The family of this 57-nucleotide sequence from Illicium henryi is "Plastid-psbA-4 3UTR RNA". The family's consensus secondary structure was predicted with LocARNA. Rfam's curators put it in the seed alignment. Rfam's curators write: Plastid psbA-4 is a non-coding RNA (ncRNA) present in plastids. By type it is a cis-regulatory element. Taxonomically the source falls in Illicium (Eukaryota, Viridiplantae, Streptophyta, Tracheophyta).
[Rfam]
RNA sequence: UUGAAGGAACAAUACCCCAUUUCUUGUUUUAUAAAGAAGUGGGGUAUUGUUCCUUCA
Numbered sequence: 001u002u003g004a005a006g007g008a009a010c011a012a013u014a015c016c017c018c019a020u021u022u023c024u025u026g027u028u029u030u031a032u033a034a035a036g037a038a039g040u041g042g043g044g045u046a047u048u049g050u051u052c053c054u055u056c057a
Stems, first nucleotide, its partner, number of pairs: 003056012018041002021038005